[Rfam]
Nucleotides: 135
Stems, first nucleotide, its partner, number of pairs: 001059004007050002010047001012045006019037004071127001073125006082117002085113003089109001091107004
Number, partner (000 for none) and nucleotide at each position: 001059g002058c003057c004056c005000u006000g007050u008049g009000g010047u011000u012045g013044c014043u015042g016041g017040a018000c019037a020036c021035u022034g023000g024000u025000c026000u027000g028000u029000g030000c031000g032000u033000a034022c035021a036020g037019u038000g039000c040017u041016u042015c043014a044013g045012c046000u047010g048000g049008u050007g051000g052000a053000a054000a055000u056004g057003g058002g059001c060000c061000a062000a063000a064000a065000g066000u067000g068000a069000u070000g071127c072000u073125g074124u075123g076122a077121u078120u079000u080000a081000c082117g083116c084000a085113u086112g087111g088000a089109g090000c091107c092106u093105g094104u095000g096000a097000u098000a099000c100000g101000u102000g103000a104094g105093c106092a107091g108000c109089u110000u111087c112086c113085a114000c115000a116083g117082c118000c119000c120078g121077g122076u123075c124074a125073c126000a127071g128000c129000u130000a131000c132000a133000c134000a135000c
The family of this 135-nucleotide sequence from Antrostomus carolinensis is "Small nucleolar RNA SNORA84". Its family is annotated with RNA processing and nucleolus in the Gene Ontology. It is annotated as an H/ACA-box small nucleolar RNA. The literature on the family includes a 2002 paper in Curr Biol by Marker et al., "Experimental RNomics: identification of 140 candidates for small non-messenger RNAs in the plant Arabidopsis thaliana". The organism belongs to Antrostomus, within Eukaryota.